Background:
This 169-nucleotide sequence from Rhodopseudomonas palustris belongs to the Rfam family "Bradyrhizobiaceae sRNA BjrC80". The source organism's lineage runs through Bacteria, Pseudomonadati, Pseudomonadota, Hyphomicrobiales and Rhodopseudomonas palustris.
[Rfam]
RNA sequence: GCUUGGAGAGUGUCGCCGGCAAUCGUCGCCCCCCAGCCGACGGCGCUGUCCCGGGGACGGGUCGUAACCCGCUCGUCCCCGUCUUUACACCUUCCGGAAGGAGUUCAGCCCCCCUCCGUCGGAAGGUUCAGGCGGGCGGUGGAGUCCCCCAGCUCCAUCGCCCGUCCCC
Numbered sequence: 001g002c003u004u005g006g007a008g009a010g011u012g013u014c015g016c017c018g019g020c021a022a023u024c025g026u027c028g029c030c031c032c033c034c035a036g037c038c039g040a041c042g043g044c045g046c047u048g049u050c051c052c053g054g055g056g057a058c059g060g061g062u063c064g065u066a067a068c069c070c071g072c073u074c075g076u077c078c079c080c081g082u083c084u085u086u087a088c089a090c091c092u093u094c095c096g097g098a099a100g101g102a103g104u105u106c107a108g109c110c111c112c113c114c115u116c117c118g119u120c121g122g123a124a125g126g127u128u129c130a131g132g133c134g135g136g137c138g139g140u141g142g143a144g145u146c147c148c149c150c151a152g153c154u155c156c157a158u159c160g161c162c163c164g165u166c167c168c169c
Base pairs, nucleotide, nucleotide: 009047010046011045012044013043014042015041017039018038019037020036053080054079055078056077057076058075059074060073061072063071064070081133082132085130090126091125094122095121096120097119100117101116102115103114134163135162136161137160138159139158140157141156142155143154144153145152

Pairs were carried over by alignment from the consensus structure.